[Rfam]
RNA sequence: AGACAGUGGUGAUGAUGACGACAUUUGUCUUUUAUCCUGAAACGCAACAUGUGGGUUUUUCAGUCACUACCUCAUCUGAACUGUCA
Numbered sequence: 001a002g003a004c005a006g007u008g009g010u011g012a013u014g015a016u017g018a019c020g021a022c023a024u025u026u027g028u029c030u031u032u033u034a035u036c037c038u039g040a041a042a043c044g045c046a047a048c049a050u051g052u053g054g055g056u057u058u059u060u061c062a063g064u065c066a067c068u069a070c071c072u073c074a075u076c077u078g079a080a081c082u083g084u085c086a
Base pairs, nucleotide, nucleotide: 002085003084004083005082006081007080

Small nucleolar RNA SNORD11B: an 86-nucleotide RNA sequence from Dissostichus mawsoni. Pairs were carried over by alignment from the consensus structure, which was predicted with WAR. A reference for the family is Yang et al. (2006), "snoSeeker: an advanced computational package for screening of guide and orphan snoRNA genes in the human genome", Nucleic Acids Res. Its family is annotated with RNA processing and nucleolus in the Gene Ontology. The family's RNA type in Rfam is C/D-box small nucleolar RNA.